[Rfam]
This 159-nucleotide RNA sequence from Oceanobacillus iheyensis belongs to the Rfam family "c-di-AMP riboswitch aptamer (ydaO/yuaA leader)". Its family is annotated with regulation of gene expression and cyclic-di-AMP binding in the Gene Ontology.

RNA sequence: CCUUUUUAGUCGCUGAAACUGUUGCUUUAGUAUUGUGCAGUGCGGGGGACCCAUUUUUGGCAAUAAAACAUUUGUCUUGGGGUGAAUCUAAAUAUUUAGAAGGGAUACUUUAUGUCCCUAAUCCGACAGCUAACCUCGUAAGCGUCAUAGGGAGAAAAG
Numbered sequence: 001c002c003u004u005u006u007u008a009g010u011c012g013c014u015g016a017a018a019c020u021g022u023u024g025c026u027u028u029a030g031u032a033u034u035g036u037g038c039a040g041u042g043c044g045g046g047g048g049a050c051c052c053a054u055u056u057u058u059g060g061c062a063a064u065a066a067a068a069c070a071u072u073u074g075u076c077u078u079g080g081g082g083u084g085a086a087u088c089u090a091a092a093u094a095u096u097u098a099g100a101a102g103g104g105a106u107a108c109u110u111u112a113u114g115u116c117c118c119u120a121a122u123c124c125g126a127c128a129g130c131u132a133a134c135c136u137c138g139u140a141a142g143c144g145u146c147a148u149a150g151g152g153a154g155a156a157a158a159g
Base pairs, nucleotide, nucleotide: 011144012143013142014141018041019040020039021038022037042139043138044137045136046135047134052079053078080124081123082122088099089098090097091096102118103117104116105115
A reference for the family is Barrick et al. (2004), "New RNA motifs suggest an expanded scope for riboswitches in bacterial genetic control", Proc Natl Acad Sci U S A. NCBI's taxonomy places the organism under Bacteria, Bacillota, Bacilli, Caryophanales, Oceanobacillus iheyensis.